[Rfam]
A member of the RNA family "SAH (S-adenosyl-L-homocysteine) riboswitch aptamer" from Thiohalocapsa marina, 83 nucleotides long. On this family, see Wang et al., Mol Cell 2008: "Riboswitches that sense S-adenosylhomocysteine and activate genes involved in coenzyme recycling". A search with the family's covariance model found it, with a score of 69 bits.
RNA sequence: UCUGCCGAGGAGCGUUGCAACGGGGCCCGACGGCCCCGCCAGGCUCGGCGGGGGGCGCUUUGUUCAAACGGCGCUCACUCUGA
Numbered sequence: 001u002c003u004g005c006c007g008a009g010g011a012g013c014g015u016u017g018c019a020a021c022g023g024g025g026c027c028c029g030a031c032g033g034c035c036c037c038g039c040c041a042g043g044c045u046c047g048g049c050g051g052g053g054g055g056c057g058c059u060u061u062g063u064u065c066a067a068a069c070g071g072c073g074c075u076c077a078c079u080c081u082g083a
Stems, first nucleotide, its partner, number of pairs: 002051007021038006